Notes:
The record is a 119-nucleotide RNA from Kocuria dechangensis, which matches "SAM (S-adenosyl methionine) riboswitch aptamer" in Rfam. Rfam's curators write: SAM-IV is a mRNA element that regulates gene expression via direct sensing of S-adenosylmethionine (SAM or AdoMet). On this family, see Weinberg et al., RNA 2008: "The aptamer core of SAM-IV riboswitches mimics the ligand-binding site of SAM-I riboswitches". The source organism's lineage runs through Bacteria, Bacillati, Actinomycetota, Actinomycetes and Kocuria.

[Rfam]
RNA sequence: GAUGACGAGUCCCAGCGUCAAGCUCUGGCUGGCUGGGCGGCAACCCUCUCCCGUAGUGGGGUGCCCCAGGUGACCAUCCGGCCACGGCUCGACGACGCAGUCGGCGGCAAGUACGGUAC
Numbered sequence: 001g002a003u004g005a006c007g008a009g010u011c012c013c014a015g016c017g018u019c020a021a022g023c024u025c026u027g028g029c030u031g032g033c034u035g036g037g038c039g040g041c042a043a044c045c046c047u048c049u050c051c052c053g054u055a056g057u058g059g060g061g062u063g064c065c066c067c068a069g070g071u072g073a074c075c076a077u078c079c080g081g082c083c084a085c086g087g088c089u090c091g092a093c094g095a096c097g098c099a100g101u102c103g104g105c106g107g108c109a110a111g112u113a114c115g116g117u118a119c
Stems, first nucleotide, its partner, number of pairs: 001078004009038001011037006021030002039065003044061003048056002081108003085103005